Record summary:
Rfam assigns this 117-nucleotide RNA from Azospirillum thermophilum to the family "Glycine riboswitch aptamer". The match comes from Rfam's covariance-model search (36 bits). The family has 44 seed sequences and 9,425 matches in Rfam 15.1.
RNA sequence: UCUGGAAAGCAGGCCCCGCCGCACGCGCCGAACGCGCGGGCGCGCCGGGCCUCACCGAAGGAGUAAGCCGCCGCGUUCCCGAAGGAGCGCCGGUGAAUCUCUCAGGUCCAAGACAGA
Numbered sequence: 001u002c003u004g005g006a007a008a009g010c011a012g013g014c015c016c017c018g019c020c021g022c023a024c025g026c027g028c029c030g031a032a033c034g035c036g037c038g039g040g041c042g043c044g045c046c047g048g049g050c051c052u053c054a055c056c057g058a059a060g061g062a063g064u065a066a067g068c069c070g071c072c073g074c075g076u077u078c079c080c081g082a083a084g085g086a087g088c089g090c091c092g093g094u095g096a097a098u099c100u101c102u103c104a105g106g107u108c109c110a111a112g113a114c115a116g117a
Stems, first nucleotide, its partner, number of pairs: 001117004011052006054107003057103002061101003067094004